[Rfam]
RNA sequence: AGCUUUGCGCAGUGGCAGUAUCGUAGCCCGUGAGGUUAAUCCGAGGCGCGAUUAUUGCUAGUUGAAAACUUUUCCCAAUACCCCGCCAUGACGACUUGAAAUAUAGUCGGCAUCGGCAAUUUUUGAGAGCCUCGCUAGAGG
Numbered sequence: 001a002g003c004u005u006u007g008c009g010c011a012g013u014g015g016c017a018g019u020a021u022c023g024u025a026g027c028c029c030g031u032g033a034g035g036u037u038a039a040u041c042c043g044a045g046g047c048g049c050g051a052u053u054a055u056u057g058c059u060a061g062u063u064g065a066a067a068a069c070u071u072u073u074c075c076c077a078a079u080a081c082c083c084c085g086c087c088a089u090g091a092c093g094a095c096u097u098g099a100a101a102u103a104u105a106g107u108c109g110g111c112a113u114c115g116g117c118a119a120u121u122u123u124u125g126a127g128a129g130c131c132u133c134g135c136u137a138g139a140g141g
Stems, first nucleotide, its partner, number of pairs: 020052005026047003034042002085117003088113003092109005130141004
RNA: U4 spliceosomal RNA
Organism: Pachyramphus minor